[Rfam]
RNA sequence: UGAUGUAGAUGAAAAGAGGAACUGCUUGCAACAGUCCCUCUAGGUAAUAAGCCGUUUAAGACGGUUGCAGAAUUUUAAUGACAAAAAA
Dot-bracket structure: ....................((((.......))))...............((((((...)))))).......................
Rfam assigns this 88-nucleotide RNA sequence from Enterococcus columbae to the family "RNA anti-toxin A". Rfam 15.1 lists 190 matches to the family in 120 species. It is annotated as an antitoxin RNA. A reference for the family is Fozo et al. (2010), "Abundance of type I toxin-antitoxin systems in bacteria: searches for new candidates and discovery of novel families", Nucleic Acids Res. Lineage of the source: Bacteria > Bacillota > Lactobacillales > Enterococcaceae > Enterococcus columbae. Its family is annotated with negative regulation of translation and mRNA binding in the Gene Ontology. A search with the family's covariance model found it, with a score of 52 bits.